[Rfam]
RNA: mir-210 microRNA precursor family
Organism: Drosophila grimshawi
RNA sequence: UCGGAGCUUAUUGGAGCUGCUGGCCACUGCACAAGAUUAGAUUCAAAAGACUCUUGUGCGUGUGACAGCGGCUAUUGUAAGAGACCAGAUAACAUCA
Numbered sequence: 001u002c003g004g005a006g007c008u009u010a011u012u013g014g015a016g017c018u019g020c021u022g023g024c025c026a027c028u029g030c031a032c033a034a035g036a037u038u039a040g041a042u043u044c045a046a047a048a049g050a051c052u053c054u055u056g057u058g059c060g061u062g063u064g065a066c067a068g069c070g071g072c073u074a075u076u077g078u079a080a081g082a083g084a085c086c087a088g089a090u091a092a093c094a095u096c097a
Base pairs, nucleotide, nucleotide: 007081008080009079010078011077015073016072017071018070019069020068021067022066024064025062026061028060029059030058031057032056033055035053036052